RNA sequence: ACGCGACUCACGGGAGAGCUCCGCGGCCUCGGCCGCGGGCGCCGAAGGAGCAACUCCUCUCCGAGAAUCUCUCAGGCACCCGGACCGUGCAGUCGUC
Number, nucleotide and partner (000 for none) at each position: 001a000002c000003g000004c000005g000006a000007c000008u000009c089010a088011c087012g086013g085014g000015a000016g000017a000018g000019c000020u039021c038022c037023g036024c035025g034026g033027c000028c000029u000030c000031g000032g000033c026034c025035g024036c023037g022038g021039g020040c000041g077042c076043c075044g073045a072046a000047g000048g071049a070050g069051c000052a000053a000054c000055u063056c000057c000058u000059c000060u000061c000062c000063g055064a000065g000066a000067a000068u000069c050070u049071c048072u045073c044074a000075g043076g042077c041078a000079c000080c000081c000082g000083g000084a000085c013086c012087g011088u010089g009090c000091a000092g000093u000094c000095g000096u000097c000
Shown here is a 97-nucleotide sequence from Dietzia sp. ANT_WB102, a member of the family "Glycine riboswitch aptamer". NCBI's taxonomy places the organism under Bacteria, Bacillati, Actinomycetota, Actinomycetes, Dietzia. Rfam describes the family as follows. This family represents the bacterial glycine riboswitch.